[Rfam]
RNA sequence: UGAAGAAACAUCAUUGAGUGCAGCGUUGAUGAAUUGAACUAGUUUCGAAAUGAAUUGAACUAGUUUCGAAAUUUCAUCAGCGCUGCACCCAAUUAUGUUUCUA
Numbered sequence: 001u002g003a004a005g006a007a008a009c010a011u012c013a014u015u016g017a018g019u020g021c022a023g024c025g026u027u028g029a030u031g032a033a034u035u036g037a038a039c040u041a042g043u044u045u046c047g048a049a050a051u052g053a054a055u056u057g058a059a060c061u062a063g064u065u066u067c068g069a070a071a072u073u074u075c076a077u078c079a080g081c082g083c084u085g086c087a088c089c090c091a092a093u094u095a096u097g098u099u100u101c102u103a
Base pairs, nucleotide, nucleotide: 006100007099008098009097010096011095013093014092015091016090018088019087020086021085022084023083024082025081026080027079028078030076031075032074
RNA: MIR397 microRNA precursor family
Organism: Prunus armeniaca